[Rfam]
A member of the RNA family "TPP riboswitch aptamer (THI element)" from Azomonas macrocytogenes, 108 nucleotides long. It scores 79 bits against the family's covariance model.
RNA sequence: CAGUUCUUGUCGGGGUGCCUUGAUGCGAAGGCUGAGAUCGGACCGUUCCGAAUCCCGUUGAACCUGAUCAGGUUAGGGCCUGCGUAGGGAAACAAGAUGUCCUCGCCA
Numbered sequence: 001c002a003g004u005u006c007u008u009g010u011c012g013g014g015g016u017g018c019c020u021u022g023a024u025g026c027g028a029a030g031g032c033u034g035a036g037a038u039c040g041g042a043c044c045g046u047u048c049c050g051a052a053u054c055c056c057g058u059u060g061a062a063c064c065u066g067a068u069c070a071g072g073u074u075a076g077g078g079c080c081u082g083c084g085u086a087g088g089g090a091a092a093c094a095a096g097a098u099g100u101c102c103u104c105g106c107c108a
Stems, first nucleotide, its partner, number of pairs: 006096005011057004016051001017032005039050004063088004069082004